Alphaproteobacterial sRNA BjrC1505: a 144-nucleotide sequence from Microvirga mediterraneensis. It is annotated as a small RNA. A search with the family's covariance model found it, with a score of 70 bits.
[Rfam]
RNA sequence: AACGUCCUUAACGGCGCAUUAACCAUUCCCGGAUAGACCUGACGGCAUCCGGGCUUCUCCCUGGAUGCCGAGUGGCUUCGAAGCCCACUCUGUUUGACGCUUCCCUGUUAGACUUCAAGAGCCGCCUCGCGCGGCUCGAUUUUU
Numbered sequence: 001a002a003c004g005u006c007c008u009u010a011a012c013g014g015c016g017c018a019u020u021a022a023c024c025a026u027u028c029c030c031g032g033a034u035a036g037a038c039c040u041g042a043c044g045g046c047a048u049c050c051g052g053g054c055u056u057c058u059c060c061c062u063g064g065a066u067g068c069c070g071a072g073u074g075g076c077u078u079c080g081a082a083g084c085c086c087a088c089u090c091u092g093u094u095u096g097a098c099g100c101u102u103c104c105c106u107g108u109u110a111g112a113c114u115u116c117a118a119g120a121g122c123c124g125c126c127u128c129g130c131g132c133g134g135c136u137c138g139a140u141u142u143u144u
Stems, first nucleotide, its partner, number of pairs: 003041002005014002020035002023032002047066007070090006096109004119137007